[Rfam]
RNA sequence: AGCUUUUACAAGGUAUCAGCACUUUUCUUUCAUUGAGGGGAAGGCGUGAGGAAAGUACCAAACAGAAGCAGACUAUUAAACUUUAAAUCGCCAGGUCUGAGUGUCUGAAAUUGCCUUUUCAUUUCAGUUUAUCCUCCACAGAGUUCAAUCAAUUGGAGUGCCUACUGCACUUCUUUAAAUGAAAGAGUAAGUAAAAAAA
Numbered sequence: 001a002g003c004u005u006u007u008a009c010a011a012g013g014u015a016u017c018a019g020c021a022c023u024u025u026u027c028u029u030u031c032a033u034u035g036a037g038g039g040g041a042a043g044g045c046g047u048g049a050g051g052a053a054a055g056u057a058c059c060a061a062a063c064a065g066a067a068g069c070a071g072a073c074u075a076u077u078a079a080a081c082u083u084u085a086a087a088u089c090g091c092c093a094g095g096u097c098u099g100a101g102u103g104u105c106u107g108a109a110a111u112u113g114c115c116u117u118u119u120c121a122u123u124u125c126a127g128u129u130u131a132u133c134c135u136c137c138a139c140a141g142a143g144u145u146c147a148a149u150c151a152a153u154u155g156g157a158g159u160g161c162c163u164a165c166u167g168c169a170c171u172u173c174u175u176u177a178a179a180u181g182a183a184a185g186a187g188u189a190a191g192u193a194a195a196a197a198a199a
Stems, first nucleotide, its partner, number of pairs: 002020003007015003029143003034138002037135003040130003048123002051120001053119003070098005099114001101112001153196002159193003165185002168181002171178002
The record is a 199-nucleotide RNA sequence from Marmota marmota, which matches "Connexin-43 internal ribosome entry site (IRES)" in Rfam. NCBI's taxonomy places the organism under Eukaryota, Dipnotetrapodomorpha, Tetrapoda, Euarchontoglires, Marmota marmota. The family's consensus secondary structure is taken from published work. From the family's description: This family represents the connexin-43 internal ribosome entry site (IRES) which allows cap independent translation during conditions such as heat shock and stress. It scores 133 bits against the family's covariance model. A reference for the family is Schiavi et al. (1999), "Connexin43 mRNA contains a functional internal ribosome entry site", FEBS Lett.